[Rfam]
RNA sequence: CAUAAUUUGUGUGCACAGUUUUCCAUCUGUGUCUGGUGGUAUGGUCCAUUUGUGUUUUGCAUUUAGACUGUACUGCUCACACAAAACCUGUGGCCAAAGAUGAACUUGAGAUCAUAGUACUGGUCUAGUGAUGUCUGAAACACAAGCCUCCCACUGGCCAGCCUCCACACUCUCAAACAUCU
Dot-bracket structure: ............(((..............(((.(((((((((.(((.(..(((.....)))..).))).)))))).))).))).....)))...............(((((........((((((.((((.(.(.((...)).).).....)))))))))).........))))).......

Rfam assigns this 182-nucleotide sequence from Oceanites oceanicus to the family "Small nucleolar RNA SNORA23". Taxonomically the source falls in Oceanites (Eukaryota, Dipnotetrapodomorpha, Tetrapoda, Procellariiformes). A reference for the family is Huttenhofer et al. (2001), "RNomics: an experimental approach that identifies 201 candidates for novel, small, non-messenger RNAs in mouse", EMBO J. The family's consensus secondary structure was predicted with RNAalifold. It scores 148 bits against the family's covariance model. The members of this family belong to the H/ACA class of snoRNAs which are thought to guide the sites of modification of uridines to pseudouridines. This family includes human snoRNA ACA23 (SNORA23) and mouse snoMBI-1. ACA23 is predicted to guide the pseudouridylation of residue U3737 and U4331 of 28S rRNA.